This 171-nucleotide RNA from Clostridium intestinale belongs to the Rfam family "glmS glucosamine-6-phosphate activated ribozyme aptamer". A search with the family's covariance model found it, with a score of 102 bits. It is annotated as a riboswitch. Gene Ontology terms of the family: catalytic activity and regulation of gene expression. The organism belongs to Clostridium intestinale, within Bacteria.

RNA sequence: AAUUUUAUACAAGCGCCAGAACUUAAGAAGGGAUCGGGUAUAUACUUUUUAAGUUGACGAGGGUUGGGGUUUAUCGAAUAUUUCGGCGGGUGCCCCACGGUAUCGCACUACCGUUAACGAAAGGACAAAACUAGGGAGCAAUUUCUAGCACAAAUCCUAUCAGGUGUUAAA
Numbered sequence: 001a002a003u004u005u006u007a008u009a010c011a012a013g014c015g016c017c018a019g020a021a022c023u024u025a026a027g028a029a030g031g032g033a034u035c036g037g038g039u040a041u042a043u044a045c046u047u048u049u050u051a052a053g054u055u056g057a058c059g060a061g062g063g064u065u066g067g068g069g070u071u072u073a074u075c076g077a078a079u080a081u082u083u084c085g086g087c088g089g090g091u092g093c094c095c096c097a098c099g100g101u102a103u104c105g106c107a108c109u110a111c112c113g114u115u116a117a118c119g120a121a122a123g124g125a126c127a128a129a130a131c132u133a134g135g136g137a138g139c140a141a142u143u144u145c146u147a148g149c150a151c152a153a154a155u156c157c158u159a160u161c162a163g164g165u166g167u168u169a170a171a
Base pairs, nucleotide, nucleotide: 020055021054022053023052024051025050026049027048029046065097066096067095068094069093074086075085076084077083098113099112100111101110102109119161120160122158123157124156131148132147133146134145135144136143137142